[Rfam]
RNA sequence: CCAGUAAGAUGAAUAAUCGCGGCUGGCAGGACCGAAAGGGGUCAGGUGAGGAAAGUCCGGGCUUCAUAGGGCAGGAUGCCGGAUAACAUCCGGUGGAGGCGACUCUAAGGACAGUGCAACAGAAAUAUACCGCCGGCUUAUGCCGGUAAGGGUGGAAGGGCAGUGUAAGAGACUACCGCCUUUCUGGUAACAGAGAGGGCAUAUGUAAACCCCAUCCGAAGCAAGACCGAAUAAAAAGCAAUGUGGCUGCCCGUCACGCUUUUAGGUUGGUCGCUUGAGUCUGUUGGCAACAGCAGAACUAGAUAGAUGAUUAUUCACGACAUAACCCGGCUUACAGUUUUGCUGGAUAC
Numbered sequence: 001c002c003a004g005u006a007a008g009a010u011g012a013a014u015a016a017u018c019g020c021g022g023c024u025g026g027c028a029g030g031a032c033c034g035a036a037a038g039g040g041g042u043c044a045g046g047u048g049a050g051g052a053a054a055g056u057c058c059g060g061g062c063u064u065c066a067u068a069g070g071g072c073a074g075g076a077u078g079c080c081g082g083a084u085a086a087c088a089u090c091c092g093g094u095g096g097a098g099g100c101g102a103c104u105c106u107a108a109g110g111a112c113a114g115u116g117c118a119a120c121a122g123a124a125a126u127a128u129a130c131c132g133c134c135g136g137c138u139u140a141u142g143c144c145g146g147u148a149a150g151g152g153u154g155g156a157a158g159g160g161c162a163g164u165g166u167a168a169g170a171g172a173c174u175a176c177c178g179c180c181u182u183u184c185u186g187g188u189a190a191c192a193g194a195g196a197g198g199g200c201a202u203a204u205g206u207a208a209a210c211c212c213c214a215u216c217c218g219a220a221g222c223a224a225g226a227c228c229g230a231a232u233a234a235a236a237a238g239c240a241a242u243g244u245g246g247c248u249g250c251c252c253g254u255c256a257c258g259c260u261u262u263u264a265g266g267u268u269g270g271u272c273g274c275u276u277g278a279g280u281c282u283g284u285u286g287g288c289a290a291c292a293g294c295a296g297a298a299c300u301a302g303a304u305a306g307a308u309g310a311u312u313a314u315u316c317a318c319g320a321c322a323u324a325a326c327c328c329g330g331c332u333u334a335c336a337g338u339u340u341u342g343c344u345g346g347a348u349a350c
Base pairs, nucleotide, nucleotide: 001346002345003344004343005342006341007340008339009338010337011335012315013314014313015312016311017310018309020048021047023045024044025043026042027041053333054332055331057330058329059328060327061326062221063220064219065218069252070251071250072249074217075216076215077214078213079093080092081091082090083089094108095106096105097104098103109212110211114210115209116206117205118204130151131150132147133146134145135144136143137142159177160176162174163173164172178200179198180197181196182195183194184193185192186191225272226271227270228269234263235262236261237260238259239258243257244256245255246254247253280297281296282295283294284293285292286291